[Rfam]
RNA sequence: CGGGAUCCGUCCCGCCGGGAUGUGGACGUUCCUGAUGGAACGUUUGAACCACGAA
Number, nucleotide and partner (000 for none) at each position: 001c014002g013003g012004g011005a010006u000007c000008c000009g000010u005011c004012c003013c002014g001015c000016c000017g050018g049019g000020a000021u000022g000023u000024g045025g044026a043027c042028g041029u040030u039031c038032c000033u000034g000035a000036u000037g000038g031039a030040a029041c028042g027043u026044u025045u024046g000047a000048a000049c018050c017051a000052c000053g000054a000055a000